[Rfam]
RNA sequence: GGCCUUCCUCUGUGAGGCAAUCAAUCAUGGGGCCCCCAGAUAAAUCGCCUCACAGAGGGAGGCC
Numbered sequence: 001g002g003c004c005u006u007c008c009u010c011u012g013u014g015a016g017g018c019a020a021u022c023a024a025u026c027a028u029g030g031g032g033c034c035c036c037c038a039g040a041u042a043a044a045u046c047g048c049c050u051c052a053c054a055g056a057g058g059g060a061g062g063c064c
Stems, first nucleotide, its partner, number of pairs: 001064018020045002024041003029036002
RNA: mir-9242 microRNA precursor family
Organism: Pipistrellus kuhlii